[Rfam]
RNA sequence: UCCAUCGUGAGGUGGAAUCUGAAGGAAGCCGGAGGCAAACUUCUGGGCUGAUGAACAAGAACUGCAUACUAAGGCUGACUUGAGACGGAUAAGCCUGCCAAACAAGGUGAAAUCCUAUACUGCCCGAACCUCAACCAGUAAAUGCAGCAGUCACAUGGAAGGAAAGCGGUCGUU
Numbered sequence: 001u002c003c004a005u006c007g008u009g010a011g012g013u014g015g016a017a018u019c020u021g022a023a024g025g026a027a028g029c030c031g032g033a034g035g036c037a038a039a040c041u042u043c044u045g046g047g048c049u050g051a052u053g054a055a056c057a058a059g060a061a062c063u064g065c066a067u068a069c070u071a072a073g074g075c076u077g078a079c080u081u082g083a084g085a086c087g088g089a090u091a092a093g094c095c096u097g098c099c100a101a102a103c104a105a106g107g108u109g110a111a112a113u114c115c116u117a118u119a120c121u122g123c124c125c126g127a128a129c130c131u132c133a134a135c136c137a138g139u140a141a142a143u144g145c146a147g148c149a150g151u152c153a154c155a156u157g158g159a160a161g162g163a164a165a166g167c168g169g170u171c172g173u174u
Stems, first nucleotide, its partner, number of pairs: 001016006028174001030172003035167002040161006046152005062147006074139003080134005087115004093108004

Shown here is a 174-nucleotide RNA from Sporolactobacillus shoreae, a member of the family "Group II catalytic intron D1-D4-3". It scores 149 bits against the family's covariance model.